A member of the RNA family "Lysine riboswitch aptamer" from Sneathia vaginalis, 164 nucleotides long.
[Rfam]
RNA sequence: UAAUUAGAUAGAGGCGCACUUUUUAUAAGUAUACUGUGGAGAUGGCAAUCAAUGAAGUAGUAAAAAGGAAACGGUGCCGAAACACUAGUAAGGCAUUACUAGGAGUUGGGUAUAUAGAGAAUAUCUAUGUAACUGUCAUAAUAUUAUGAUGUGCUAUCAGUAUA
Numbered sequence: 001u002a003a004u005u006a007g008a009u010a011g012a013g014g015c016g017c018a019c020u021u022u023u024u025a026u027a028a029g030u031a032u033a034c035u036g037u038g039g040a041g042a043u044g045g046c047a048a049u050c051a052a053u054g055a056a057g058u059a060g061u062a063a064a065a066a067g068g069a070a071a072c073g074g075u076g077c078c079g080a081a082a083c084a085c086u087a088g089u090a091a092g093g094c095a096u097u098a099c100u101a102g103g104a105g106u107u108g109g110g111u112a113u114a115u116a117g118a119g120a121a122u123a124u125c126u127a128u129g130u131a132a133c134u135g136u137c138a139u140a141a142u143a144u145u146a147u148g149a150u151g152u153g154c155u156a157u158c159a160g161u162a163u164a
Stems, first nucleotide, its partner, number of pairs: 007158005016077005022071003032062006081107003085102007108134002111131008136149005
The base pairs follow the family's consensus structure, which is taken from published work. A search with the family's covariance model found it, with a score of 104 bits. For this family Rfam cites "An mRNA structure in bacteria that controls gene expression by binding lysine" (Sudarsan et al., Genes Dev, 2003). The source organism's lineage runs through Bacteria, Fusobacteriati, Fusobacteriota, Fusobacteriales and Sneathia.